RNA sequence: UAACUAAAGGAGAAGUUGAUUCCCCUUUAGCGUUUAAUUAUCGGCGUAUACGUUUGCGUUGUCUCUUGCUACGGAGUCGCUUACGUGUACGCUUUUUCUUUUU
Numbered sequence: 001u002a003a004c005u006a007a008a009g010g011a012g013a014a015g016u017u018g019a020u021u022c023c024c025c026u027u028u029a030g031c032g033u034u035u036a037a038u039u040a041u042c043g044g045c046g047u048a049u050a051c052g053u054u055u056g057c058g059u060u061g062u063c064u065c066u067u068g069c070u071a072c073g074g075a076g077u078c079g080c081u082u083a084c085g086u087g088u089a090c091g092c093u094u095u096u097u098c099u100u101u102u103u
Base pairs, nucleotide, nucleotide: 004030005029006028007027008026009025010024012022013021014020043093044092045091046090047089048088049087050086051085052084053083056080057079058078061077063076064075065074066073
The record is a 103-nucleotide RNA sequence from Bacillus atrophaeus, which matches "Bacillus SR6 antitoxin" in Rfam.
NCBI's taxonomy places the organism under Bacteria, Bacillati, Bacilli, Caryophanales, Bacillus atrophaeus.
Gene Ontology terms of the family: toxin catabolic process, mRNA binding and toxin-antitoxin complex.
It is one of the family's seed sequences.
A reference for the family is Reif et al. (2018), "Bacillus subtilis Type I antitoxin SR6 Promotes Degradation of Toxin yonT mRNA and Is Required to Prevent Toxic yoyJ Overexpression", Toxins (Basel).
About the family: Overlaps 2 toxins: 3' end of yonT and yoyJ at its 5'end. In type I toxin-antitoxin (TA) systems the antitoxin is a small RNA that neutralizes a toxin protein.
It is annotated as an antisense RNA.